RNA: Small nucleolar RNA snR60/Z15/Z230/Z193/J17
RNA sequence: CAGAUACAGUGAUGAUGGCAUAGUUCAGCAGAGUGUCCUGUGAAGAAUACCAGGAUCUUGUCUUUCGCUCCUAUCUGAUAUAUCUG
Numbered sequence: 001c002a003g004a005u006a007c008a009g010u011g012a013u014g015a016u017g018g019c020a021u022a023g024u025u026c027a028g029c030a031g032a033g034u035g036u037c038c039u040g041u042g043a044a045g046a047a048u049a050c051c052a053g054g055a056u057c058u059u060g061u062c063u064u065u066c067g068c069u070c071c072u073a074u075c076u077g078a079u080a081u082a083u084c085u086g
Stems, first nucleotide, its partner, number of pairs: 004083003008079001
Dot-bracket structure: ...(((.(......................................................................).)))...